[Rfam]
A member of the RNA family "Editing element of GABA-3 exon 9" from Mauremys mutica, 54 nucleotides long. Rfam classes the family as a cis-regulatory element. A search with the family's covariance model found it, with a score of 71 bits. NCBI's taxonomy places the organism under Eukaryota, Chordata, Gnathostomata, Testudinoidea, Mauremys. The family's consensus secondary structure is taken from published work.
Nucleotides: 054
Base pairs, nucleotide, nucleotide: 001054002053003052006051007050008049010047011046013045014044016041017040019038020037022035023034024033025032026031
Number, partner (000 for none) and nucleotide at each position: 001054a002053a003052a004000g005000u006051g007050g008049c009000c010047u011046a012000u013045g014044c015000g016041a017040c018000u019038g020037c021000a022035a023034u024033g025032g026031a027000c028000u029000g030000g031026u032025u033024u034023a035022u036000a037020g038019c039000u040017g041016u042000g043000u044014g045013u046011u047010a048000c049008g050007c051006c052003u053002u054001u